The family of this 116-nucleotide RNA from Bacillus aerolatus is "epsC RNA".
The family's consensus secondary structure is taken from published work.
It is annotated as a cis-regulatory element.
RNA sequence: AGGUGAUGCCUCCUGACCUUUAUCAACGGAGGCACUCGGCUGUACUGUGGGUAUUUAUAGAAUCGCCUUAGACGCCAGUCGUCAGUAGUAUAGCGUGAGGACGGGUUAGAUGCCCG
Numbered sequence: 001a002g003g004u005g006a007u008g009c010c011u012c013c014u015g016a017c018c019u020u021u022a023u024c025a026a027c028g029g030a031g032g033c034a035c036u037c038g039g040c041u042g043u044a045c046u047g048u049g050g051g052u053a054u055u056u057a058u059a060g061a062a063u064c065g066c067c068u069u070a071g072a073c074g075c076c077a078g079u080c081g082u083c084a085g086u087a088g089u090a091u092a093g094c095g096u097g098a099g100g101a102c103g104g105g106u107u108a109g110a111u112g113c114c115c116g
Stems, first nucleotide, its partner, number of pairs: 001019004007034007035099004039094008049068004055062002071083004102116005